[Rfam]
Background:
Rfam assigns this 83-nucleotide RNA from Hydrogenispora ethanolica to the family "c-di-GMP-II-GAG riboswitch aptamer". NCBI's taxonomy places the organism under Bacteria, Bacillati, Bacillota, Hydrogenispora. Its Rfam clan is "c-di-GMP_II riboswitch clan". The family's consensus secondary structure is taken from published work.
RNA sequence: AAAGUGUUUCAGGCGAUGAGGCCCAUCGUGCGCGGAGUCACCGGCGAUGGGCGGAGCCACUGGCGAAACCGGCGUAGCAGUGU
Number, nucleotide and partner (000 for none) at each position: 001a083002a000003a081004g000005u079006g078007u077008u076009u000010c074011a000012g058013g057014c056015g000016a000017u000018g000019a000020g000021g052022c051023c050024c049025a048026u047027c046028g045029u000030g000031c000032g000033c000034g000035g000036a000037g069038u066039c065040a000041c063042c062043g000044g000045c028046g027047a026048u025049g024050g023051g022052c021053g000054g000055a000056g014057c013058c012059a000060c000061u000062g042063g041064c000065g039066a038067a000068a000069c037070c000071g000072g000073c000074g010075u000076a008077g007078c006079a005080g000081u003082g000083u001